c-di-AMP riboswitch aptamer (ydaO/yuaA leader): a 180-nucleotide sequence from Paenibacillus psychroresistens. A reference for the family is Barrick et al. (2004), "New RNA motifs suggest an expanded scope for riboswitches in bacterial genetic control", Proc Natl Acad Sci U S A.

[Rfam]
RNA sequence: UUUUCCAAUUCGCUGAGUUUCCAUUAGGGAAACGGGGGAACCAUAAGUAACUCAUGUCCAGAAAUGGAGUGAUUUACGGUUAAAGGGGUGAAUCAUAGGUAAUGCAUCAUUUACCUAAGUAGGGCGACUCUCACGUCCGAAUCCGUCAGCUAACCUCGUAAGCGUAAAGAGAGAGGAAAC
Numbered sequence: 001u002u003u004u005c006c007a008a009u010u011c012g013c014u015g016a017g018u019u020u021c022c023a024u025u026a027g028g029g030a031a032a033c034g035g036g037g038g039a040a041c042c043a044u045a046a047g048u049a050a051c052u053c054a055u056g057u058c059c060a061g062a063a064a065u066g067g068a069g070u071g072a073u074u075u076a077c078g079g080u081u082a083a084a085g086g087g088g089u090g091a092a093u094c095a096u097a098g099g100u101a102a103u104g105c106a107u108c109a110u111u112u113a114c115c116u117a118a119g120u121a122g123g124g125c126g127a128c129u130c131u132c133a134c135g136u137c138c139g140a141a142u143c144c145g146u147c148a149g150c151u152a153a154c155c156u157c158g159u160a161a162g163c164g165u166a167a168a169g170a171g172a173g174a175g176g177a178a179a180c
Stems, first nucleotide, its partner, number of pairs: 011164004018031003032159006042085001086144003094119001096117007122138004